[Rfam]
RNA sequence: UUGUUAAGUGAUGAAUGACAAACGUAAUAUCAUAUCAUCACGCCUUGUCACAGAUAUCUCAUUAUCACGUCAUCAUCUUCAAUGACAUGACAAUAACAUGUCAAUCGUUGGUCAUAAUGAUGUGAUAUUUCUUCUGUUACAUCAUCAUCUAACGGAA
Number, nucleotide and partner (000 for none) at each position: 001u155002u154003g153004u152005u151006a150007a000008g148009u147010g146011a145012u144013g143014a142015a000016u139017g138018a137019c136020a135021a000022a133023c000024g131025u000026a129027a128028u127029a126030u125031c124032a123033u122034a121035u120036c119037a118038u117039c000040a115041c000042g113043c000044c111045u110046u000047g108048u107049c000050a105051c000052a000053g102054a101055u100056a099057u098058c000059u000060c000061a000062u000063u000064a000065u000066c000067a000068c000069g086070u085071c084072a083073u082074c000075a000076u000077c000078u000079u000080c000081a000082a073083u072084g071085a070086c069087a000088u000089g000090a000091c000092a000093a000094u000095a000096a000097c000098a057099u056100g055101u054102c053103a000104a000105u050106c000107g048108u047109u000110g045111g044112u000113c042114a000115u040116a000117a038118u037119g036120a035121u034122g033123u032124g031125a030126u029127a028128u027129u026130u000131c024132u000133u022134c000135u020136g019137u018138u017139a016140c000141a000142u014143c013144a012145u011146c010147a009148u008149c000150u006151a005152a004153c003154g002155g001156a000157a000
RNA: MIR4371 microRNA precursor family